[Rfam]
Small nucleolar RNA SNORA5: a 141-nucleotide sequence from Corythaeola cristata.
Pairs were carried over by alignment from the consensus structure, which was predicted with RNAfold.
Gene Ontology terms of the family: RNA processing and nucleolus.
It scores 72 bits against the family's covariance model.
The family is grouped with related families in Rfam's "SNORA5 clan".
ACA5 is a member of the H/ACA class of snoRNA that guide the sites of modification of uridines to pseudouridines.
RNA sequence: UGCAGCCCCGUCAAAUUCGGUCCCUGCCUCCUCCGUGACGGGGACCGGCCAAGCGGCUGCCACAGCAACUUCUGUGCUCCGUGAGCCCCACGUCCCUUUGCCCGUGGGAUGCCAGGGGAUAAAAUCGUGCCACGGACACCU
Numbered sequence: 001u002g003c004a005g006c007c008c009c010g011u012c013a014a015a016u017u018c019g020g021u022c023c024c025u026g027c028c029u030c031c032u033c034c035g036u037g038a039c040g041g042g043g044a045c046c047g048g049c050c051a052a053g054c055g056g057c058u059g060c061c062a063c064a065g066c067a068a069c070u071u072c073u074g075u076g077c078u079c080c081g082u083g084a085g086c087c088c089c090a091c092g093u094c095c096c097u098u099u100g101c102c103c104g105u106g107g108g109a110u111g112c113c114a115g116g117g118g119a120u121a122a123a124a125u126c127g128u129g130c131c132a133c134g135g136a137c138a139c140c141u
Stems, first nucleotide, its partner, number of pairs: 002060004018047009028037001074133003077129001079127001086118004